[Rfam]
RNA: Small nucleolar RNA SNORA29
RNA sequence: AUUCCCAUUAUACUACCACUUUUUCAAUCUCCAGAGGAAGUGGCUAUGCUUGUGGGAUAGAGGAAAAUGUUGCCACGGUCUGAAGGAAAAGGUUGAUUGUAUCUUUUUCCUACAUGAAGUUGGCAGGACAUCA
Numbered sequence: 001a002u003u004c005c006c007a008u009u010a011u012a013c014u015a016c017c018a019c020u021u022u023u024u025c026a027a028u029c030u031c032c033a034g035a036g037g038a039a040g041u042g043g044c045u046a047u048g049c050u051u052g053u054g055g056g057a058u059a060g061a062g063g064a065a066a067a068u069g070u071u072g073c074c075a076c077g078g079u080c081u082g083a084a085g086g087a088a089a090a091g092g093u094u095g096a097u098u099g100u101a102u103c104u105u106u107u108u109c110c111u112a113c114a115u116g117a118a119g120u121u122g123g124c125a126g127g128a129c130a131u132c133a
Base pairs, nucleotide, nucleotide: 004056005055006054007053016043017042018041019040072124073123074122075121090111091110092109